[Rfam]
RNA sequence: GAAAUUUUUUUAUGGGGAUCAAUACAAAAACAUUAUAACCAACAUUAAACAAGUGCUUAGUGAAUGGCGACACCUUCAAAUUGCGGGAACUCCUUCAAAAGCCUCAAGCACCACUUCAGUUGAGAAAUCUUCUGAAGCAACUCAGGUAAUUCCUGUUCCCAAUGGUAACAAGCUUGAGGACAUGGUGGAAAUCCGCAGCCAAGCUCCUAAGUCCGAACUUUGUUCGAGUAGCUAAGGUACGUCCGAAAAACGUAGUUGACAAGGAUAUGGAGAAGGUUCAGAGACUUUAUGGAGGUGGGGCUGAAGGAUCUGGUCAAUCCUGAUGAAGCCUUAAGAUAAAGUCCAGCCUCUUUCGAAAGAUUGAG
Numbered sequence: 001g002a003a004a005u006u007u008u009u010u011u012a013u014g015g016g017g018a019u020c021a022a023u024a025c026a027a028a029a030a031c032a033u034u035a036u037a038a039c040c041a042a043c044a045u046u047a048a049a050c051a052a053g054u055g056c057u058u059a060g061u062g063a064a065u066g067g068c069g070a071c072a073c074c075u076u077c078a079a080a081u082u083g084c085g086g087g088a089a090c091u092c093c094u095u096c097a098a099a100a101g102c103c104u105c106a107a108g109c110a111c112c113a114c115u116u117c118a119g120u121u122g123a124g125a126a127a128u129c130u131u132c133u134g135a136a137g138c139a140a141c142u143c144a145g146g147u148a149a150u151u152c153c154u155g156u157u158c159c160c161a162a163u164g165g166u167a168a169c170a171a172g173c174u175u176g177a178g179g180a181c182a183u184g185g186u187g188g189a190a191a192u193c194c195g196c197a198g199c200c201a202a203g204c205u206c207c208u209a210a211g212u213c214c215g216a217a218c219u220u221u222g223u224u225c226g227a228g229u230a231g232c233u234a235a236g237g238u239a240c241g242u243c244c245g246a247a248a249a250a251c252g253u254a255g256u257u258g259a260c261a262a263g264g265a266u267a268u269g270g271a272g273a274a275g276g277u278u279c280a281g282a283g284a285c286u287u288u289a290u291g292g293a294g295g296u297g298g299g300g301c302u303g304a305a306g307g308a309u310c311u312g313g314u315c316a317a318u319c320c321u322g323a324u325g326a327a328g329c330c331u332u333a334a335g336a337u338a339a340a341g342u343c344c345a346g347c348c349u350c351u352u353u354c355g356a357a358a359g360a361u362u363g364a365g
Stems, first nucleotide, its partner, number of pairs: 004019006071297005077291002082197006092188002095185002198277002204272004212265003281344001283343005299330004350363001353360002
Notes:
A member of the RNA family "Group I catalytic intron" from Macrostomum lignano, 365 nucleotides long. Group I catalytic introns are large self-splicing ribozymes. They catalyse their own excision from mRNA, tRNA and rRNA precursors in a wide range of organisms. The core secondary structure consists of 9 paired regions (P1-P9). The family's consensus secondary structure is taken from published work. Rfam links the family to the GO term Group I intron splicing.